[Rfam]
Rfam assigns this 91-nucleotide RNA sequence from Pseudomonas paraeruginosa to the family "Selenocysteine transfer RNA". The base pairs follow the family's consensus structure, which is taken from published work. Rfam's curators put it in the seed alignment.

RNA sequence: GGAAGGCAAUCACGCCCGGUGGCGUGGCCGGACUUCAAAUCCGGUGGGGGACGGCAGCCGUUCCUGGGUGGGUUCGACUCCCACUGCCUUC
Numbered sequence: 001g002g003a004a005g006g007c008a009a010u011c012a013c014g015c016c017c018g019g020u021g022g023c024g025u026g027g028c029c030g031g032a033c034u035u036c037a038a039a040u041c042c043g044g045u046g047g048g049g050g051a052c053g054g055c056a057g058c059c060g061u062u063c064c065u066g067g068g069u070g071g072g073u074u075c076g077a078c079u080c081c082c083a084c085u086g087c088c089u090u091c
Base pairs, nucleotide, nucleotide: 002091003090004089005088006087007086008085011026012025013024014023015022016021027045028044029043030042031041032040047064048063049062050061052060069083070082071081072080